[Rfam]
RNA sequence: GGGGUUACCUCGGGGUGCCCGGCAAUGGGCUGAGAUGCGCGGCUGCGCGCGAACCCGUUGAACCUGAACCGGUUCGGACCGGCGGAGGGAAGGGUGACGUCAACCGAU
Dot-bracket structure: .....(((((((((.((((((....)))))......(((((....))))))..)))).....(((...((((......))))...)))...)))))............

This 108-nucleotide sequence from Rhabdonatronobacter sediminivivens belongs to the Rfam family "TPP riboswitch aptamer (THI element)". The base pairs follow the family's consensus structure, which is taken from published work. On this family, see Rodionov et al., J Biol Chem 2002: "Comparative genomics of thiamin biosynthesis in procaryotes. New genes and regulatory mechanisms".